[Rfam]
RNA: c-di-AMP riboswitch aptamer (ydaO/yuaA leader)
RNA sequence: UUGUCUUUUUUGACUAAUCUAAAGUGCAGCGGCAGAGCGGGGGAACCAAACUUAAGGGGCUAAUCUCCAAGCAAUUUUUUGUUAAGAAAAUGUUCUUAGAGAAGAGCAUCUCUCAGCUCUAGCCCGUCAGCUAACCUCGUAGGCAUUGAGGGAGACUGA
Numbered sequence: 001u002u003g004u005c006u007u008u009u010u011u012g013a014c015u016a017a018u019c020u021a022a023a024g025u026g027c028a029g030c031g032g033c034a035g036a037g038c039g040g041g042g043g044a045a046c047c048a049a050a051c052u053u054a055a056g057g058g059g060c061u062a063a064u065c066u067c068c069a070a071g072c073a074a075u076u077u078u079u080u081g082u083u084a085a086g087a088a089a090a091u092g093u094u095c096u097u098a099g100a101g102a103a104g105a106g107c108a109u110c111u112c113u114c115a116g117c118u119c120u121a122g123c124c125c126g127u128c129a130g131c132u133a134a135c136c137u138c139g140u141a142g143g144c145a146u147u148g149a150g151g152g153a154g155a156c157u158g159a
Base pairs, nucleotide, nucleotide: 011145012144014142018036019035020034037140038139039138040137041136042135047056057125058124059123065101066100067099104119105118106117107116